[Rfam]
RNA sequence: CGGUAGCUGGAUCGACCGGCCUCCUCGGAGGGCAACCCAGCCAACCCUGUCCGUUCAGGACAAACACAACCCCGCGGG
Numbered sequence: 001c002g003g004u005a006g007c008u009g010g011a012u013c014g015a016c017c018g019g020c021c022u023c024c025u026c027g028g029a030g031g032g033c034a035a036c037c038c039a040g041c042c043a044a045c046c047c048u049g050u051c052c053g054u055u056c057a058g059g060a061c062a063a064a065c066a067c068a069a070c071c072c073c074g075c076g077g078g
Base pairs, nucleotide, nucleotide: 001018002017003016004015006041007040008039009038010037020031021030022029049061050060051059052058
Shown here is a 78-nucleotide RNA, a member of the family "DUF3085 RNA". By type it is a cis-regulatory element.